Rfam assigns this 115-nucleotide RNA from Alkalibaculum bacchi to the family "Group II catalytic intron D1-D4-2".
RNA sequence: GGUGGAGGGUCCACCGAAUUCGCCAUACAGGUGGUGAUUUCAAACUACCCUAAGGUGCUGUAGACAAAAGCUAUGGUAUUGAGCGUUAGGGAAAAGUCAGUAUAAGCUGGCAUGU
Dot-bracket structure: (((((.....)))))(((.((.((((....)))).)).)))....(.((((((((.(((.(((.......))).))).)).....))))))....((((((....))))))..).
Numbered sequence: 001g002g003u004g005g006a007g008g009g010u011c012c013a014c015c016g017a018a019u020u021c022g023c024c025a026u027a028c029a030g031g032u033g034g035u036g037a038u039u040u041c042a043a044a045c046u047a048c049c050c051u052a053a054g055g056u057g058c059u060g061u062a063g064a065c066a067a068a069a070g071c072u073a074u075g076g077u078a079u080u081g082a083g084c085g086u087u088a089g090g091g092a093a094a095a096g097u098c099a100g101u102a103u104a105a106g107c108u109g110g111c112a113u114g115u
Stems, first nucleotide, its partner, number of pairs: 001015005016041003020037002023034004046114001048091006054080002057077003061073003096111006
A search with the family's covariance model found it, with a score of 101 bits. Lineage of the source: Bacteria > Bacillota > Clostridia > Eubacteriales > Alkalibaculum.